[Rfam]
The record is a 78-nucleotide RNA from Bifidobacterium merycicum, which matches "Fluoride riboswitch aptamer (crcB RNA motif)" in Rfam. NCBI's taxonomy places the organism under Bacteria, Bacillati, Actinomycetota, Bifidobacteriales, Bifidobacterium. For this family Rfam cites "Widespread genetic switches and toxicity resistance proteins for fluoride" (Baker et al., Science, 2012).

RNA sequence: UGGGAGCCCGGUGAUGGGACUCGCCUGGGAUUCGUAUGGAUCCCGAACCGCAAUUCCGCUGAUGGUUCCUGCGACAUG
Numbered sequence: 001u002g003g004g005a006g007c008c009c010g011g012u013g014a015u016g017g018g019a020c021u022c023g024c025c026u027g028g029g030a031u032u033c034g035u036a037u038g039g040a041u042c043c044c045g046a047a048c049c050g051c052a053a054u055u056c057c058g059c060u061g062a063u064g065g066u067u068c069c070u071g072c073g074a075c076a077u078g
Base pairs, nucleotide, nucleotide: 010025011024012023013022016069017068018067019066020065021064050059051058

Annotation: The match comes from Rfam's covariance-model search (37 bits).